[Rfam]
RNA sequence: UACCCUCUUUCCACUUUGCCAACUGGAUGUAUGUCUUUACUGGUCAUUCCAGUGGGGCAAACGAAAUAUCCUUUUUAAAACUCAGGCAAACUGGGUGUUUGUCAUGGUCAUGUAUCCUGUCAGAGAAAACAAAC
Numbered sequence: 001u002a003c004c005c006u007c008u009u010u011c012c013a014c015u016u017u018g019c020c021a022a023c024u025g026g027a028u029g030u031a032u033g034u035c036u037u038u039a040c041u042g043g044u045c046a047u048u049c050c051a052g053u054g055g056g057g058c059a060a061a062c063g064a065a066a067u068a069u070c071c072u073u074u075u076u077a078a079a080a081c082u083c084a085g086g087c088a089a090a091c092u093g094g095g096u097g098u099u100u101g102u103c104a105u106g107g108u109c110a111u112g113u114a115u116c117c118u119g120u121c122a123g124a125g126a127a128a129a130c131a132a133a134c
Stems, first nucleotide, its partner, number of pairs: 032059005042049002069127001071125004083106001085103007